[Rfam]
Alphaproteobacterial sRNA BjrC1505: a 142-nucleotide RNA from Pseudohoeflea suaedae. The family's RNA type in Rfam is small RNA. NCBI's taxonomy places the organism under Bacteria, Alphaproteobacteria, Hyphomicrobiales, Rhizobiaceae, Pseudohoeflea. A reference for the family is Madhugiri et al. (2012), "Small RNAs of the Bradyrhizobium/Rhodopseudomonas lineage and their analysis", RNA Biol. The match comes from Rfam's covariance-model search (51 bits).
RNA sequence: GGCCCUGUUAAGCUGCGGUUAAGCUUUACGAGUGUUUACUGUGGUUAUCCAGUCCUGCUGGAUUUGACAGCCGCCCUGACGGGCCUGCUGUUUGACGCCUCCCUGUUAAACUCUUGAGAGCCGCCCAUGCGGCUCUUUUUUU
Numbered sequence: 001g002g003c004c005c006u007g008u009u010a011a012g013c014u015g016c017g018g019u020u021a022a023g024c025u026u027u028a029c030g031a032g033u034g035u036u037u038a039c040u041g042u043g044g045u046u047a048u049c050c051a052g053u054c055c056u057g058c059u060g061g062a063u064u065u066g067a068c069a070g071c072c073g074c075c076c077u078g079a080c081g082g083g084c085c086u087g088c089u090g091u092u093u094g095a096c097g098c099c100u101c102c103c104u105g106u107u108a109a110a111c112u113c114u115u116g117a118g119a120g121c122c123g124c125c126c127a128u129g130c131g132g133c134u135c136u137u138u139u140u141u142u
Base pairs, nucleotide, nucleotide: 001046002045003044004043015040020038021037022036023035024034048062049061050060051059066088094107095106096105097104116137117136118135119134120133121132122131123130124129